[Rfam]
RNA sequence: UAAUUGGUUAUGUAACAGUAAUUGAAGUUAGUACGAGAGGAACCCUUCAUUCAGAUAAUUGGUAUUUGCGCCUGAUCGAACGGUCAAUGGCGCGAAGCUACCAUCUGCUGGAUAACAGCUGAACGCCUCUAAGUUGGAAUCCAUGCUGGAAACAUAGCUUUUAUUACGGGGAAUUUAUCUUUUAGGAUAAAAAUAUGGGCAUUUAUUGUCCAGUGAACCAUAGGUGCUUGAUUGCUCAUUGCGGAAAUGUGGUGAGUAGUCUGUGCUUCAAGCAAAUUGCCAUGGUAAUUCUCCUUCAAAUCGGGUACAGACGAUACCAAAUUUACCGGGUAUUGUAAGCAGUUGAGUAGCCUUUGUUGCUACGAGGUGUUGAGAUUAAGCCUGGGUACUAGAAUUUU
Numbered sequence: 001u002a003a004u005u006g007g008u009u010a011u012g013u014a015a016c017a018g019u020a021a022u023u024g025a026a027g028u029u030a031g032u033a034c035g036a037g038a039g040g041a042a043c044c045c046u047u048c049a050u051u052c053a054g055a056u057a058a059u060u061g062g063u064a065u066u067u068g069c070g071c072c073u074g075a076u077c078g079a080a081c082g083g084u085c086a087a088u089g090g091c092g093c094g095a096a097g098c099u100a101c102c103a104u105c106u107g108c109u110g111g112a113u114a115a116c117a118g119c120u121g122a123a124c125g126c127c128u129c130u131a132a133g134u135u136g137g138a139a140u141c142c143a144u145g146c147u148g149g150a151a152a153c154a155u156a157g158c159u160u161u162u163a164u165u166a167c168g169g170g171g172a173a174u175u176u177a178u179c180u181u182u183u184a185g186g187a188u189a190a191a192a193a194u195a196u197g198g199g200c201a202u203u204u205a206u207u208g209u210c211c212a213g214u215g216a217a218c219c220a221u222a223g224g225u226g227c228u229u230g231a232u233u234g235c236u237c238a239u240u241g242c243g244g245a246a247a248u249g250u251g252g253u254g255a256g257u258a259g260u261c262u263g264u265g266c267u268u269c270a271a272g273c274a275a276a277u278u279g280c281c282a283u284g285g286u287a288a289u290u291c292u293c294c295u296u297c298a299a300a301u302c303g304g305g306u307a308c309a310g311a312c313g314a315u316a317c318c319a320a321a322u323u324u325a326c327c328g329g330g331u332a333u334u335g336u337a338a339g340c341a342g343u344u345g346a347g348u349a350g351c352c353u354u355u356g357u358u359g360c361u362a363c364g365a366g367g368u369g370u371u372g373a374g375a376u377u378a379a380g381c382c383u384g385g386g387u388a389c390u391a392g393a394a395u396u397u398u
Stems, first nucleotide, its partner, number of pairs: 006159008016148004021051001023049005052107005060100003067094005073086005109143003116136005168294007298397004304318004324388004328383003332376002339370003344366001347363005
Eukaryotic large subunit ribosomal RNA: a 398-nucleotide part of an RNA from Hesseltinella vesiculosa. Taxonomically the source falls in Hesseltinella (Eukaryota, Opisthokonta, Mucoromycota, Mucoromycotina).